Small nucleolar RNA SNORD72: an 82-nucleotide RNA sequence from Chloropsis cyanopogon. Lineage of the source: Eukaryota > Tetrapoda > Saurischia > Corvoidea > Chloropsis. It scores 50 bits against the family's covariance model. snoRNA HBII-240 belongs to the CD family of snoRNAs. It is the human orthologue of the mouse MBII-240 and is predicted to guide 2'O-ribose methylation of the large 28S rRNA at residue U4590. The pairing is the family consensus, mapped onto this sequence. Gene Ontology terms of the family: nucleolus and RNA processing.
[Rfam]
RNA sequence: CAGUUUUUAAUAAUGUGUUUAUUUUUAAAAGGUCUGAACAGAUGAACUCUGUAGUGAUUUCAGUGCAUUACUGAGAUAAAUU
Numbered sequence: 001c002a003g004u005u006u007u008u009a010a011u012a013a014u015g016u017g018u019u020u021a022u023u024u025u026u027a028a029a030a031g032g033u034c035u036g037a038a039c040a041g042a043u044g045a046a047c048u049c050u051g052u053a054g055u056g057a058u059u060u061c062a063g064u065g066c067a068u069u070a071c072u073g074a075g076a077u078a079a080a081u082u
Stems, first nucleotide, its partner, number of pairs: 002081001004079002007076002